[Rfam]
Plastid-psbA-1 3UTR RNA: a 100-nucleotide sequence from Rhamnella rubrinervis. A reference for the family is Richter et al. (2023), "Retrograde signaling in plants: A critical review focusing on the GUN pathway and beyond", Plant Commun. A search with the family's covariance model found it, with a score of 58 bits. The base pairs follow the family's consensus structure, which was predicted with LocARNA. Clan: Plastid-psbA 3UTR RNA clan. Rfam's curators write: Plastid psbA-1 is a non-coding RNA (ncRNA) present in plastids. It was identified in inverted repeat sequences in the 3 prime untranslate region (3UTR) of photosystem II quinone-binding protein (psbA).

RNA sequence: UUGAAGUAAAGAAAAAACUUACGUAAGAAAAACGACUCCUAAAUAAUAAAGGAGCAAUAACAAACUUCUUGAUAGAACAAGAAAUUUUUAUUGCUCCUUU
Numbered sequence: 001u002u003g004a005a006g007u008a009a010a011g012a013a014a015a016a017a018c019u020u021a022c023g024u025a026a027g028a029a030a031a032a033c034g035a036c037u038c039c040u041a042a043a044u045a046a047u048a049a050a051g052g053a054g055c056a057a058u059a060a061c062a063a064a065c066u067u068c069u070u071g072a073u074a075g076a077a078c079a080a081g082a083a084a085u086u087u088u089u090a091u092u093g094c095u096c097c098u099u100u
Stems, first nucleotide, its partner, number of pairs: 048100013062087003066083005